[Rfam]
Shown here is a 120-nucleotide RNA sequence from Pedobacter sp. HMWF019, a member of the family "Group II catalytic intron D1-D4-2". A search with the family's covariance model found it, with a score of 75 bits. Group II introns are found in rRNA, tRNA and mRNA of organelles in fungi, plants and protists, and also in mRNA in bacteria. The organism belongs to Pedobacter, within Bacteria. For this family Rfam cites "The ins and outs of group II introns" (Bonen and Vogel, Trends Genet, 2001).
RNA sequence: GGUGGAGGGCCCACCGCCGGGUAUGACAGACAUCUCCGGCAAACUACCUACUGGUGCUGCUUUGCGAAAGGAGGCGGUGUUGAACGAGUAAGGAAAAGGUCUUACCCGAUAAGAUCAAGU
Numbered sequence: 001g002g003u004g005g006a007g008g009g010c011c012c013a014c015c016g017c018c019g020g021g022u023a024u025g026a027c028a029g030a031c032a033u034c035u036c037c038g039g040c041a042a043a044c045u046a047c048c049u050a051c052u053g054g055u056g057c058u059g060c061u062u063u064g065c066g067a068a069a070g071g072a073g074g075c076g077g078u079g080u081u082g083a084a085c086g087a088g089u090a091a092g093g094a095a096a097a098g099g100u101c102u103u104a105c106c107c108g109a110u111a112a113g114a115u116c117a118a119g120u
Base pairs, nucleotide, nucleotide: 001015002014003013004012005011016040017039018038019037020036021035023033024032025031045119047093048092049090050089051088052087053081054080056078057077058076060074061073062072063071098116099115100114101113102112103111